[Rfam]
RNA: Bacterial large subunit ribosomal RNA, nucleotides 2658 to 2918
RNA sequence: AGAAACUUGAAGGGGGCUGCUCCUAGUACGAGAGGACCGGAGUGGACGAACCGCUAGUGUACCAAUUAUCCUGCCAAGGGUACAGUUGGGUAGCUACGUUCGGGACGGAUAAACGCUGAAAGCAUCUAAGCGUGAAACCAGCCUUGAGAUGAGGUUUCUCAUAGCAUAAGCUAGUAAGAUCCCAUGUAGACGACAUGGUUGAUAGGCCAGGUGUGGAAGUGCUGCAAGGCAUGGAGCUGACUGGUACUAAUAGAUCGAGGG
Numbered sequence: 001a002g003a004a005a006c007u008u009g010a011a012g013g014g015g016g017c018u019g020c021u022c023c024u025a026g027u028a029c030g031a032g033a034g035g036a037c038c039g040g041a042g043u044g045g046a047c048g049a050a051c052c053g054c055u056a057g058u059g060u061a062c063c064a065a066u067u068a069u070c071c072u073g074c075c076a077a078g079g080g081u082a083c084a085g086u087u088g089g090g091u092a093g094c095u096a097c098g099u100u101c102g103g104g105a106c107g108g109a110u111a112a113a114c115g116c117u118g119a120a121a122g123c124a125u126c127u128a129a130g131c132g133u134g135a136a137a138c139c140a141g142c143c144u145u146g147a148g149a150u151g152a153g154g155u156u157u158c159u160c161a162u163a164g165c166a167u168a169a170g171c172u173a174g175u176a177a178g179a180u181c182c183c184a185u186g187u188a189g190a191c192g193a194c195a196u197g198g199u200u201g202a203u204a205g206g207c208c209a210g211g212u213g214u215g216g217a218a219g220u221g222c223u224g225c226a227a228g229g230c231a232u233g234g235a236g237c238u239g240a241c242u243g244g245u246a247c248u249a250a251u252a253g254a255u256c257g258a259g260g261g
Base pairs, nucleotide, nucleotide: 001159002158003157004156005155006154007153008152011145012144013143014142017045018044019043020042021041022040023039047102048101049100050099051098055096056095057094062089063088064087065086066085067082068081069080070079071078072077107139108138113133114132115131116130117129162173163172164171175258178256179255180254181253182198183197184196185195186194203249204248205247206245207244208243209242210241213237219232220231221230222229223228